The family of this 82-nucleotide RNA from Thrips palmi is "mir-184 microRNA precursor family". Pairs were carried over by alignment from the consensus structure, which was predicted with PFOLD. A reference for the family is Chen et al. (2005), "The developmental miRNA profiles of zebrafish as determined by small RNA cloning", Genes Dev. Taxonomically the source falls in Thrips (Eukaryota, Panarthropoda, Dicondylia, Eumetabola). The match comes from Rfam's covariance-model search (65 bits).

RNA sequence: CGUCCCUCGCCUCCUUGUCAUUCUCGUGUCCGGUUGUACAUUUCACUUACUGGACGGAGAACUGAUAAGGGCGCGUGGGAUC
Numbered sequence: 001c002g003u004c005c006c007u008c009g010c011c012u013c014c015u016u017g018u019c020a021u022u023c024u025c026g027u028g029u030c031c032g033g034u035u036g037u038a039c040a041u042u043u044c045a046c047u048u049a050c051u052g053g054a055c056g057g058a059g060a061a062c063u064g065a066u067a068a069g070g071g072c073g074c075g076u077g078g079g080a081u082c
Stems, first nucleotide, its partner, number of pairs: 012071009021061005029053002